[Rfam]
RNA sequence: AUAGUUAUUUAGAGGCCAUAGCAGAAAUGCUCACAGUGUGGCCCUGUCAGAUUCCAGUGAAUAUGCAAAUUCUGCU
Numbered sequence: 001a002u003a004g005u006u007a008u009u010u011a012g013a014g015g016c017c018a019u020a021g022c023a024g025a026a027a028u029g030c031u032c033a034c035a036g037u038g039u040g041g042c043c044c045u046g047u048c049a050g051a052u053u054c055c056a057g058u059g060a061a062u063a064u065g066c067a068a069a070u071u072c073u074g075c076u
Stems, first nucleotide, its partner, number of pairs: 012044001014043004020076007027039003048065002051062004
Dot-bracket structure: ...........[.[[[[..((((((((((.......)))]]]]]...((.((((....)))).))....)))))))